[Rfam]
RNA sequence: UAGUAAGGGCGUGUGGGGGAUGUCUUGGCACCAGGAGGCGAAAGAGCGUGGAAGACUGCGAAAAGUCCGGGGGAGCUGUCAAACGAGCUUUGAUCCCGGAAUACCCGAGCGAACGCAGGGAACUGAAACAUCUCAGUACCUGUAGGAGGAGAAAGAAACCUCGAUUCCGUCAGUAGCUGCGAGCGAACGCGGAGCAGCCCAAACCGGGGGUAACACCCCGGGGUUGUAGGACCACGUUUAGGAUCCAUGAGUCCAAGCUGAAGCGUCUGGAAUGACGCGCCGCAGGGGGUGAAAGUCCCGUAAGCGACUGGACGAGUGGCCGAGUGGUAUCCUGAGUAGGACUCAACACGUGAAAGUGAGUCCGAAGCGGCGGGGUCCAUCCCGCAAGGCUAAAUACUCCCUGGUGACCGAUAGCGUAGAGUAGCGCGAGCGACGAUGGGAAGAACCCCGACAAGGGGAGGACACUGAACCUGAAACCACAUGCCUACAAG
Numbered sequence: 001u002a003g004u005a006a007g008g009g010c011g012u013g014u015g016g017g018g019g020a021u022g023u024c025u026u027g028g029c030a031c032c033a034g035g036a037g038g039c040g041a042a043a044g045a046g047c048g049u050g051g052a053a054g055a056c057u058g059c060g061a062a063a064a065g066u067c068c069g070g071g072g073g074a075g076c077u078g079u080c081a082a083a084c085g086a087g088c089u090u091u092g093a094u095c096c097c098g099g100a101a102u103a104c105c106c107g108a109g110c111g112a113a114c115g116c117a118g119g120g121a122a123c124u125g126a127a128a129c130a131u132c133u134c135a136g137u138a139c140c141u142g143u144a145g146g147a148g149g150a151g152a153a154a155g156a157a158a159c160c161u162c163g164a165u166u167c168c169g170u171c172a173g174u175a176g177c178u179g180c181g182a183g184c185g186a187a188c189g190c191g192g193a194g195c196a197g198c199c200c201a202a203a204c205c206g207g208g209g210g211u212a213a214c215a216c217c218c219c220g221g222g223g224u225u226g227u228a229g230g231a232c233c234a235c236g237u238u239u240a241g242g243a244u245c246c247a248u249g250a251g252u253c254c255a256a257g258c259u260g261a262a263g264c265g266u267c268u269g270g271a272a273u274g275a276c277g278c279g280c281c282g283c284a285g286g287g288g289g290u291g292a293a294a295g296u297c298c299c300g301u302a303a304g305c306g307a308c309u310g311g312a313c314g315a316g317u318g319g320c321c322g323a324g325u326g327g328u329a330u331c332c333u334g335a336g337u338a339g340g341a342c343u344c345a346a347c348a349c350g351u352g353a354a355a356g357u358g359a360g361u362c363c364g365a366a367g368c369g370g371c372g373g374g375g376u377c378c379a380u381c382c383c384g385c386a387a388g389g390c391u392a393a394a395u396a397c398u399c400c401c402u403g404g405u406g407a408c409c410g411a412u413a414g415c416g417u418a419g420a421g422u423a424g425c426g427c428g429a430g431c432g433a434c435g436a437u438g439g440g441a442a443g444a445a446c447c448c449c450g451a452c453a454a455g456g457g458g459a460g461g462a463c464a465c466u467g468a469a470c471c472u473g474a475a476a477c478c479a480c481a482u483g484c485c486u487a488c489a490a491g
Base pairs, nucleotide, nucleotide: 007486008485009484010483011482012481013480014479015478016477022471023436024435027409028408029406030405031404032403033402034401035400036398037397038110039109044106046104047060048059049058066100067099068098069097070096071095072094075088076087077086114145115143116142117141118140119139125132126131155162156161165394166193167192168191169190170189176184177183196391197390198389199388204221205220206219207218208217209216228333229332230331232327233326234325235324245319246318247317248316251313252312253311254310255309257305258304259303263278264277265276266275267274281285287299288298289297339363340362341361342360343359344358345357370385371384372383373382374381424431425430446458447457448456449455

Description
A member of the RNA family "Bacterial large subunit ribosomal RNA" from Gemmata obscuriglobus, 491 nucleotides of a longer RNA. Its Rfam clan is "LSU clan".